[Rfam]
RNA sequence: GAAUGAAAGUGAUGAACUAAGGAUGAGUGAUGAUAAUUUUUCAAAUGAUCCAUAAAUAUAUCCUUAUUCGCUACGUUCUUUCUGAUUCAUUC
Numbered sequence: 001g002a003a004u005g006a007a008a009g010u011g012a013u014g015a016a017c018u019a020a021g022g023a024u025g026a027g028u029g030a031u032g033a034u035a036a037u038u039u040u041u042c043a044a045a046u047g048a049u050c051c052a053u054a055a056a057u058a059u060a061u062c063c064u065u066a067u068u069c070g071c072u073a074c075g076u077u078c079u080u081u082c083u084g085a086u087u088c089a090u091u092c
Stems, first nucleotide, its partner, number of pairs: 004089004